[Rfam]
RNA sequence: AGCACUUGUGUGUGUUUUGUUUUACUCAUGGGCAAAGAUUUGCAGACAGGUGCAAACAAUAAAUGCUCUUUUGCAACCCAGAACUCAUUAUUUAGUAGGAGUUUUGAUACAUGUAAGAAGGACUGUG
Numbered sequence: 001a002g003c004a005c006u007u008g009u010g011u012g013u014g015u016u017u018u019g020u021u022u023u024a025c026u027c028a029u030g031g032g033c034a035a036a037g038a039u040u041u042g043c044a045g046a047c048a049g050g051u052g053c054a055a056a057c058a059a060u061a062a063a064u065g066c067u068c069u070u071u072u073g074c075a076a077c078c079c080a081g082a083a084c085u086c087a088u089u090a091u092u093u094a095g096u097a098g099g100a101g102u103u104u105u106g107a108u109a110c111a112u113g114u115a116a117g118a119a120g121g122a123c124u125g126u127g
Base pairs, nucleotide, nucleotide: 002053003052004051005050006049007048008047009046011044014039015037016036017035018034019033020032025030063124066121067120069118070117071116072115073114079106080105081104082103083102084101085100086099088097
The record is a 127-nucleotide RNA from Castor canadensis, which matches "Small nucleolar RNA SNORA40" in Rfam. For this family Rfam cites "Mapping to nucleotide resolution of pseudouridine residues in large subunit ribosomal RNAs from representative eukaryotes, prokaryotes, archaebacteria, mitochondria and chloroplasts" (Ofengand and Bakin, J Mol Biol, 1997). The snoRNA ACA 40 belongs to the H/ACA family of snoRNAs and guides the pseudouridylation of 28S rRNA subunit at position U4565. NB This family has a high threshold value to exclude a large number of closely related sequences that do not appear to have conserved H and ACA boxes, and may be pseudogenes. The match comes from Rfam's covariance-model search (104 bits). Lineage of the source: Eukaryota > Eutheria > Euarchontoglires > Rodentia > Castor. Rfam 15.1 lists 2,550 matches to the family in 517 species.